[Rfam]
RNA sequence: UCAAAAGUGAGGAGGGCUUCUUCACGGAGUGGAAACUAGGUAACACGCCCAAAGAGAAGCCGAGA
Numbered sequence: 001u002c003a004a005a006a007g008u009g010a011g012g013a014g015g016g017c018u019u020c021u022u023c024a025c026g027g028a029g030u031g032g033a034a035a036c037u038a039g040g041u042a043a044c045a046c047g048c049c050c051a052a053a054g055a056g057a058a059g060c061c062g063a064g065a
Stems, first nucleotide, its partner, number of pairs: 015061008026050002029046003
RNA: Cyano-1 RNA
Organism: Synechococcus sp. CC9311